The family of this 75-nucleotide sequence from Micromonospora narathiwatensis is "ASpks TB sRNA". Rfam classes the family as an antisense RNA. Pairs were carried over by alignment from the consensus structure, which is taken from published work.

RNA sequence: CUUGAUCGACCCGAGCCACAACGGUUGGUCGUCCCGCCGGUGCUGUCCGUACGUGGCGAGGAGUGCCUGGGCCUC
Numbered sequence: 001c002u003u004g005a006u007c008g009a010c011c012c013g014a015g016c017c018a019c020a021a022c023g024g025u026u027g028g029u030c031g032u033c034c035c036g037c038c039g040g041u042g043c044u045g046u047c048c049g050u051a052c053g054u055g056g057c058g059a060g061g062a063g064u065g066c067c068u069g070g071g072c073c074u075c
Base pairs, nucleotide, nucleotide: 014026015025016024017023032070033069038065039064043060044059047056048055049054